Molybdenum/Tungsten riboswitch aptamer (Moco RNA motif): a 121-nucleotide RNA sequence from Anaerosolibacter carboniphilus. Pairs were carried over by alignment from the consensus structure, which is taken from published work. For this family Rfam cites "in molybdenum cofactor and tungsten cofactor metabolism" (Regulski et al., Mol Microbiol, 2008). The source organism's lineage runs through Bacteria, Bacillati, Bacillota, Thermotaleaceae and Anaerosolibacter.
RNA sequence: AAAUACAUAAAUCUCCGAGUAUGUAGUUCCUGUAGCACAUGAGCCAUGGAGUGCAUACCGAUAGGGUAUUAUCGGAAACGAUAAUGCCUCCCGUGUGGAAAGGAGGAUUUCAUAAGCAUAG
Numbered sequence: 001a002a003a004u005a006c007a008u009a010a011a012u013c014u015c016c017g018a019g020u021a022u023g024u025a026g027u028u029c030c031u032g033u034a035g036c037a038c039a040u041g042a043g044c045c046a047u048g049g050a051g052u053g054c055a056u057a058c059c060g061a062u063a064g065g066g067u068a069u070u071a072u073c074g075g076a077a078a079c080g081a082u083a084a085u086g087c088c089u090c091c092c093g094u095g096u097g098g099a100a101a102g103g104a105g106g107a108u109u110u111c112a113u114a115a116g117c118a119u120a121g
Stems, first nucleotide, its partner, number of pairs: 004114001012106005019058007027051004035044002064089011090098002